[Rfam]
RNA sequence: CUCGAUGUUAAAUCGUACAGGAUGAGAACCUGCAGCAGGUUCGAGUCGAACGCAGUGAGACAGCGUUGCCAGUGGCAACGACCCGUAGGGCGAGCGUAGCAAGUCAUCCUGCACGACCCACCA
Number, nucleotide and partner (000 for none) at each position: 001c000002u000003c000004g000005a000006u000007g000008u000009u000010a000011a000012a000013u000014c000015g114016u113017a000018c111019a110020g109021g108022a000023u106024g000025a000026g000027a000028a000029c000030c000031u000032g000033c092034a000035g000036c089037a000038g000039g000040u087041u000042c085043g084044a000045g000046u000047c057048g056049a000050a000051c000052g000053c000054a000055g000056u048057g047058a000059g000060a000061c000062a000063g000064c080065g079066u078067u077068g076069c075070c000071a000072g000073u000074g000075g069076c068077a067078a066079c065080g064081a000082c000083c000084c043085g042086u000087a040088g000089g036090g000091c000092g033093a000094g000095c000096g000097u000098a000099g000100c000101a000102a000103g000104u000105c000106a023107u000108c021109c020110u019111g018112c000113a016114c015115g000116a000117c000118c000119c000120a000121c000122c000123a000
RNA: RtT RNA